Ribosomal protein L13 leader: a 58-nucleotide RNA from Domibacillus epiphyticus. Rfam classes the family as a cis-regulatory leader. The match comes from Rfam's covariance-model search (44 bits). Its family is annotated with regulation of gene expression in the Gene Ontology.
[Rfam]
RNA sequence: GGUAUGUUAUUUGACCCCACGAUGAGCCCCGGAAACUUAUUCGUGAUAUAAAUACAUG
Numbered sequence: 001g002g003u004a005u006g007u008u009a010u011u012u013g014a015c016c017c018c019a020c021g022a023u024g025a026g027c028c029c030c031g032g033a034a035a036c037u038u039a040u041u042c043g044u045g046a047u048a049u050a051a052a053u054a055c056a057u058g
Stems, first nucleotide, its partner, number of pairs: 008054006018045003021041006